Shown here is a 75-nucleotide RNA sequence from Capsicum baccatum, a member of the family "Plastid-ycf2 5UTR RNA". On this family, see Richter et al., Plant Commun 2023: "Retrograde signaling in plants: A critical review focusing on the GUN pathway and beyond". Rfam describes the family as follows. Plastid ycf2 is a non-coding RNA (ncRNA) recognised in plastids. It was found in the prime untranslated region (5UTR) of ycf2 genes, it presents a tRNA-like motif which suggests it can be involved in mRNA maturation, particularly involved in defining the precise 5' end of the transcript. Rfam classes the family as a cis-regulatory element. The family's consensus secondary structure was predicted with LocARNA. The match comes from Rfam's covariance-model search (76 bits). Lineage of the source: Eukaryota > Streptophytina > lamiids > Solanales > Capsicum. Rfam 15.1 lists 3,521 matches to the family in 417 species.
RNA sequence: GUGCAUCCAAUAGGACUUGAACAUAUGAAUUUACCAAUUAUGAGUUAGAUGCUUUAACCAUUCAGCCAUAGAUAC
Numbered sequence: 001g002u003g004c005a006u007c008c009a010a011u012a013g014g015a016c017u018u019g020a021a022c023a024u025a026u027g028a029a030u031u032u033a034c035c036a037a038u039u040a041u042g043a044g045u046u047a048g049a050u051g052c053u054u055u056a057a058c059c060a061u062u063c064a065g066c067c068a069u070a071g072a073u074a075c
Base pairs, nucleotide, nucleotide: 003075005073006072007071010026011025012024014022040069041068042067044066045065046064048062049061050060051059